Shown here is a 120-nucleotide sequence from Papio anubis, a member of the family "Y RNA". For this family Rfam cites "Caenorhabditis elegans embryos contain only one major species of Ro RNP" (Van Horn et al., RNA, 1995). Taxonomically the source falls in Papio (Eukaryota, Vertebrata, Dipnotetrapodomorpha, Primates). It scores 51 bits against the family's covariance model.

RNA sequence: GGCUGGUCCGAAGGGAGUGAGUUAUCUCAUUUGAUUGUUCACAGUCAGCUACAGAUCGAACUCCUUGUUCUACUCUUCCCCUCUCUCCCCAUUCUCACUUCUGCACUUGACUAAACUAAA
Numbered sequence: 001g002g003c004u005g006g007u008c009c010g011a012a013g014g015g016a017g018u019g020a021g022u023u024a025u026c027u028c029a030u031u032u033g034a035u036u037g038u039u040c041a042c043a044g045u046c047a048g049c050u051a052c053a054g055a056u057c058g059a060a061c062u063c064c065u066u067g068u069u070c071u072a073c074u075c076u077u078c079c080c081c082u083c084u085c086u087c088c089c090c091a092u093u094c095u096c097a098c099u100u101c102u103g104c105a106c107u108u109g110a111c112u113a114a115a116c117u118a119a120a
Base pairs, nucleotide, nucleotide: 001116004113005112006111007110008109010108011107014104016099017098018097019096020095021094043082044081
Dot-bracket structure: (..(((((.((..(.((((((.....................((....................................))...........))))))....)..)))))))..)....